[Rfam]
RNA sequence: GGGAAGUGCACCUAGGGUUCCGCUGUUCAGCUGUCUGCUGACCUGGUCUGGUCCGAGUGGUGCAGGUAUGCACUUUUGGUGUAUACUACACCGGAAGGAUAAAAGCCUGGACGGG
Numbered sequence: 001g002g003g004a005a006g007u008g009c010a011c012c013u014a015g016g017g018u019u020c021c022g023c024u025g026u027u028c029a030g031c032u033g034u035c036u037g038c039u040g041a042c043c044u045g046g047u048c049u050g051g052u053c054c055g056a057g058u059g060g061u062g063c064a065g066g067u068a069u070g071c072a073c074u075u076u077u078g079g080u081g082u083a084u085a086c087u088a089c090a091c092c093g094g095a096a097g098g099a100u101a102a103a104a105g106c107c108u109g110g111a112c113g114g115g
Stems, first nucleotide, its partner, number of pairs: 007064006015054002020051002022048001023045001025043001027041005065087008089110001091113001096108003
Record summary
Shown here is a 115-nucleotide sequence from Halothermothrix orenii, a member of the family "Guanidine-I riboswitch aptamer". It scores 64 bits against the family's covariance model. On this family, see Barrick et al., Proc Natl Acad Sci U S A 2004: "New RNA motifs suggest an expanded scope for riboswitches in bacterial genetic control".